[Rfam]
RNA: Small nucleolar RNA SNORA57
Organism: Odobenus rosmarus
RNA sequence: CCUUCUUUUCUUGGUGGGGGUCAAAUGGUGUGUGGUCCCUGCCCCCAUUAUGUAUUGAGGCAGAGAGAAAGGGCUCCAGCCCCCUUCCACACCAUGUCUUUGGUACCCAUGGCUUUCAGUCCACCAGUUAUAUCUUCAAGCAUCAGGACAUGG
Numbered sequence: 001c002c003u004u005c006u007u008u009u010c011u012u013g014g015u016g017g018g019g020g021u022c023a024a025a026u027g028g029u030g031u032g033u034g035g036u037c038c039c040u041g042c043c044c045c046c047a048u049u050a051u052g053u054a055u056u057g058a059g060g061c062a063g064a065g066a067g068a069a070a071g072g073g074c075u076c077c078a079g080c081c082c083c084c085u086u087c088c089a090c091a092c093c094a095u096g097u098c099u100u101u102g103g104u105a106c107c108c109a110u111g112g113c114u115u116u117c118a119g120u121c122c123a124c125c126a127g128u129u130a131u132a133u134c135u136u137c138a139a140g141c142a143u144c145a146g147g148a149c150a151u152g153g
Stems, first nucleotide, its partner, number of pairs: 001060004015047006025040001027038002086145001089143001092140001106127001110123003